[Rfam]
RNA sequence: ACUGAUGCCAGGUUCUACCACACACCCCCAUCGGGGAAAUGCGUCCGACCCACAGGCCCAUACGGGCAUCCGGGCGCAUGGAAACGAUGGAACGCCAUUCACGGGUAGAACCGCACAAUGAGUAACCGACGUUAAUCAAGGGUGAAUGGCAACGCGUUAGAACUCCGGGGACGGAGUGAGCGUGGGUGGCCCUCUUGGAGCAUU
Number, nucleotide and partner (000 for none) at each position: 001a000002c000003u000004g000005a203006u202007g201008c200009c000010a000011g000012g000013u000014u000015c000016u000017a000018c000019c000020a000021c000022a000023c000024a187025c186026c185027c184028c090029c089030a088031u087032c086033g085034g000035g000036g000037a000038a000039a079040u078041g077042c076043g075044u000045c073046c072047g071048a000049c000050c000051c000052a000053c000054a000055g000056g067057c066058c065059c064060a000061u000062a000063c000064g059065g058066g057067c056068a000069u000070c000071c047072g046073g045074g000075c043076g042077c041078a040079u039080g000081g000082a000083a000084a000085c033086g032087a031088u030089g029090g028091a000092a000093c000094g150095c149096c148097a147098u146099u145100c144101a143102c142103g000104g000105g000106u000107a000108g000109a000110a000111c000112c000113g000114c000115a000116c000117a000118a000119u000120g000121a000122g000123u000124a000125a000126c000127c000128g000129a000130c000131g000132u000133u000134a000135a000136u000137c000138a000139a000140g000141g000142g102143u101144g100145a099146a098147u097148g096149g095150c094151a000152a000153c000154g000155c000156g000157u000158u000159a000160g000161a000162a177163c176164u175165c174166c173167g172168g000169g000170g000171a000172c167173g166174g165175a164176g163177u162178g000179a000180g000181c000182g000183u000184g027185g026186g025187u024188g000189g000190c000191c000192c000193u000194c000195u000196u000197g000198g000199a000200g008201c007202a006203u005204u000

Description: A member of the RNA family "lysM-Actino RNA", 204 nucleotides long. Rfam classes the family as a cis-regulatory element.